Record summary: Shown here is a 100-nucleotide RNA sequence from Aquitalea sp. FJL05, a member of the family "Fluoride riboswitch aptamer (crcB RNA motif)". Taxonomically the source falls in Aquitalea (Bacteria, Pseudomonadati, Pseudomonadota, Betaproteobacteria). The base pairs follow the family's consensus structure, which is taken from published work.

[Rfam]
RNA sequence: UUCUUUGAGGGAGAUGGCAUUCCUCCCGCCUGUUUGCCGCAGCCAGCACGGAUGCAGCAACUGCAAACCGCCCAUCCGGGCUGAUGAUGCCUGCAGGCUU
Dot-bracket structure: .........[[[[..((((((.]]]]...........................................((((....))))....)))))).........
Numbered sequence: 001u002u003c004u005u006u007g008a009g010g011g012a013g014a015u016g017g018c019a020u021u022c023c024u025c026c027c028g029c030c031u032g033u034u035u036g037c038c039g040c041a042g043c044c045a046g047c048a049c050g051g052a053u054g055c056a057g058c059a060a061c062u063g064c065a066a067a068c069c070g071c072c073c074a075u076c077c078g079g080g081c082u083g084a085u086g087a088u089g090c091c092u093g094c095a096g097g098c099u100u
Stems, first nucleotide, its partner, number of pairs: 010026004016091006070081004